[Rfam]
RNA sequence: GAAAGCUCCUGGGGAACGGUUGGUCAUCUGAUAAAGAUGGCAGCAUCUGUAGAGAUGUGGGAUCCUACCGCCGGGAGCUAUUUUUUA
Dot-bracket structure: ((.(((((((((....((((.((((((((.....)))))))..((((......)))).......).))))))))))))).)).....
Numbered sequence: 001g002a003a004a005g006c007u008c009c010u011g012g013g014g015a016a017c018g019g020u021u022g023g024u025c026a027u028c029u030g031a032u033a034a035a036g037a038u039g040g041c042a043g044c045a046u047c048u049g050u051a052g053a054g055a056u057g058u059g060g061g062a063u064c065c066u067a068c069c070g071c072c073g074g075g076a077g078c079u080a081u082u083u084u085u086u087a
Stems, first nucleotide, its partner, number of pairs: 001082002004079009017070004022065001023041007044057004
The record is an 87-nucleotide RNA, which matches "DUF3800-VII RNA" in Rfam. It is one of the family's seed sequences. By type it is a small RNA.